[Rfam]
RNA: Streptomyces RNA 4115
Organism: Streptomyces sp. AJS327
RNA sequence: GCGUGGGUCGGCCCGCUGCACCUCGUCACCGCGCGGUCAGUGGGCUGGGGGACACCGUCGCCUCAUUCCCCGCGGGCGACGGUUCGGUCCGGGGGGUGUGGAGCCCCCCGGACUGAC
Numbered sequence: 001g002c003g004u005g006g007g008u009c010g011g012c013c014c015g016c017u018g019c020a021c022c023u024c025g026u027c028a029c030c031g032c033g034c035g036g037u038c039a040g041u042g043g044g045c046u047g048g049g050g051g052a053c054a055c056c057g058u059c060g061c062c063u064c065a066u067u068c069c070c071c072g073c074g075g076g077c078g079a080c081g082g083u084u085c086g087g088u089c090c091g092g093g094g095g096g097u098g099u100g101g102a103g104c105c106c107c108c109c110g111g112a113c114u115g116a117c
Stems, first nucleotide, its partner, number of pairs: 002115001006085002009047010048053001055082009086114012
Dot-bracket structure: .(...((.((((((((((...................))))))))))(....).(((((((((..........))))))))).))((((((((((((.....)))))))))))))..